[Rfam]
RNA sequence: UCGGGGCAAGGCAACCUCCCGGUCAGGCGUUCGCCCAAGCGUUGC
Numbered sequence: 001u002c003g004g005g006g007c008a009a010g011g012c013a014a015c016c017u018c019c020c021g022g023u024c025a026g027g028c029g030u031u032c033g034c035c036c037a038a039g040c041g042u043u044g045c
Base pairs, nucleotide, nucleotide: 001022002021003020004019005018006017011045012044013043014042015041026035027034028033

Shown here is a 45-nucleotide sequence from Sphingopyxis alaskensis, a member of the family "chrB-b RNA". It is one of the family's seed sequences. It is annotated as a cis-regulatory element.